[Rfam]
RNA sequence: GUGCAUCUAAUAAAAAUUGAACCUACAAAUUCGUUAAUUAUGAGUUGAGCGCUUUAACCAUUUAGCCAUGGAUGC
Numbered sequence: 001g002u003g004c005a006u007c008u009a010a011u012a013a014a015a016a017u018u019g020a021a022c023c024u025a026c027a028a029a030u031u032c033g034u035u036a037a038u039u040a041u042g043a044g045u046u047g048a049g050c051g052c053u054u055u056a057a058c059c060a061u062u063u064a065g066c067c068a069u070g071g072a073u074g075c
Stems, first nucleotide, its partner, number of pairs: 003075006011025002040069003044066006051059001
Rfam assigns this 75-nucleotide sequence from Gossypium stocksii to the family "Plastid-ycf2 5UTR RNA". About the family: Plastid ycf2 is a non-coding RNA (ncRNA) recognised in plastids. It was found in the prime untranslated region (5UTR) of ycf2 genes, it presents a tRNA-like motif which suggests it can be involved in mRNA maturation, particularly involved in defining the precise 5' end of the transcript. On this family, see Richter et al., Plant Commun 2023: "Retrograde signaling in plants: A critical review focusing on the GUN pathway and beyond". Rfam 15.1 lists 3,521 matches to the family in 417 species.